The family of this 72-nucleotide RNA from Armadillidium nasatum is "tRNA". By type it is a transfer RNA. Rfam's curators write: Transfer RNA (tRNA) molecules are approximately 80 nucleotides in length. It scores 70 bits against the family's covariance model. Pairs were carried over by alignment from the consensus structure, which is taken from published work.

RNA sequence: GCCCUUAUAGCUCAGUGGUAGAGCGUUGGUCUUGUAAACCAAAGGUCGAGAGUUCGAUCCUCCCUGAGGGCA
Number, nucleotide and partner (000 for none) at each position: 001g071002c070003c069004c068005u067006u066007a065008u000009a000010g024011c023012u022013c021014a000015g000016u000017g000018g000019u000020a000021g013022a012023g011024c010025g000026u042027u041028g040029g039030u038031c000032u000033u000034g000035u000036a000037a000038a030039c029040c028041a027042a026043a000044g000045g000046u000047c000048g064049a000050g062051a061052g060053u000054u000055c000056g000057a000058u000059c000060c052061u051062c050063c000064c048065u007066g006067a005068g004069g003070g002071c001072a000
The organism belongs to Armadillidium, within Eukaryota.